Shown here is a 165-nucleotide sequence from a Paenibacillaceae bacterium, a member of the family "c-di-AMP riboswitch aptamer (ydaO/yuaA leader)". The source organism's lineage runs through Bacteria, Bacillati, Bacillota, Bacilli and Paenibacillaceae. Rfam links the family to the GO terms cyclic-di-AMP binding and regulation of gene expression. It scores 97 bits against the family's covariance model.
Nucleotides: 165
Base pairs, nucleotide, nucleotide: 011149012148013147014146018032019031020030021029022028033144034143035142036141037140038139043071072129073128074127080105081104082103083102108123109122110121111120
Number, partner (000 for none) and nucleotide at each position: 001000u002000a003000u004000u005000u006000u007000c008000a009000a010000a011149c012148g013147c014146u015000u016000a017000a018032u019031c020030c021029c022028c023000g024000g025000a026000a027000a028022g029021g030020g031019g032018a033144a034143c035142g036141g037140g038139g039000g040000a041000a042000c043071c044000a045000a046000a047000c048000g049000a050000a051000g052000c053000c054000g055000c056000g057000c058000a059000g060000u061000u062000g063000c064000g065000g066000u067000u068000u069000c070000a071043g072129g073128g074127g075000u076000g077000a078000a079000u080105c081104c082103u083102u084000u085000c086000g087000u088000u089000a090000g091000u092000a093000g094000a095000a096000c097000u098000u099000g100000u101000a102083a103082a104081g105080g106000a107000c108123g109122g110121g111120c112000a113000c114000u115000c116000u117000c118000a119000a120111g121110c122109c123108c124000g125000a126000a127074u128073c129072c130000g131000a132000c133000a134000g135000c136000u137000a138000a139038c140037c141036u142035c143034g144033u145000c146014a147013g148012c149011g150000u151000a152000u153000u154000g155000a156000g157000a158000g159000a160000g161000a162000a163000a164000c165000g